[Rfam]
RNA: tRNA
RNA sequence: AGGGAUAUAACUCAGCGGUAGAGUAUCACCUUGACGUGGUGGAAGUCAUCAGUUCGAACCUGAUUAUCCCUA
Number, nucleotide and partner (000 for none) at each position: 001a071002g070003g069004g068005a067006u066007a065008u000009a000010a024011c023012u022013c021014a000015g000016c000017g000018g000019u000020a000021g013022a012023g011024u010025a000026u042027c041028a040029c039030c038031u000032u000033g000034a000035c000036g000037u000038g030039g029040u028041g027042g026043a000044a000045g000046u000047c000048a064049u063050c062051a061052g060053u000054u000055c000056g000057a000058a000059c000060c052061u051062g050063a049064u048065u007066a006067u005068c004069c003070c002071u001072a000